[Rfam]
A member of the RNA family "raiA-hairpin RNA" from Streptomyces klenkii, 48 nucleotides long. The match comes from Rfam's covariance-model search (53 bits). Taxonomically the source falls in Streptomyces (Bacteria, Actinomycetota, Actinomycetes, Streptomycetaceae). It is annotated as a small RNA.

RNA sequence: CGCCAAGUCGGUGGCUCCGGGUAUCCCCGGAGUCUGAUGCAAGAGGGA
Numbered sequence: 001c002g003c004c005a006a007g008u009c010g011g012u013g014g015c016u017c018c019g020g021g022u023a024u025c026c027c028c029g030g031a032g033u034c035u036g037a038u039g040c041a042a043g044a045g046g047g048a
Base pairs, nucleotide, nucleotide: 013034014033015032016031017030018029019028020027